[Rfam]
RNA sequence: GCAGACUCACUCUGUACUGGACUGCAUCCUUCAGUUCAGGUGCUUUUUCUGUCUGCGAGAGUAAGAGUUCACAGGAGUGACAACUGCCUCCUUUCUCAUAGAAGGCUGUUACAAUUGCUGCUGGGACAUGGCU
Numbered sequence: 001g002c003a004g005a006c007u008c009a010c011u012c013u014g015u016a017c018u019g020g021a022c023u024g025c026a027u028c029c030u031u032c033a034g035u036u037c038a039g040g041u042g043c044u045u046u047u048u049c050u051g052u053c054u055g056c057g058a059g060a061g062u063a064a065g066a067g068u069u070c071a072c073a074g075g076a077g078u079g080a081c082a083a084c085u086g087c088c089u090c091c092u093u094u095c096u097c098a099u100a101g102a103a104g105g106c107u108g109u110u111a112c113a114a115u116u117g118c119u120g121c122u123g124g125g126a127c128a129u130g131g132c133u
Stems, first nucleotide, its partner, number of pairs: 001056006014043005020037001022034003069124003072120003076115001078113002082110001085108002088105002
Dot-bracket structure: ((((((.......(((((.(.(((.......)))..).))))).......))))))............((((((.(.((..(..((.((..............)).)).).)).)..))).))).........
About this RNA
The family of this 133-nucleotide RNA sequence from Eurystomus gularis is "Small nucleolar RNA SNORA77". ACA63 (SNORA77) is a member of the H/ACA class of snoRNAs that guide the sites of modification of uridines to pseudouridines. The literature on the family includes a 2006 paper in RNA by Schattner et al., "A computational screen for mammalian pseudouridylation guide H/ACA RNAs". Rfam classes the family as an H/ACA-box small nucleolar RNA. Pairs were carried over by alignment from the consensus structure, which was predicted with RNAalifold. NCBI's taxonomy places the organism under Eukaryota, Sarcopterygii, Amniota, Neognathae, Eurystomus.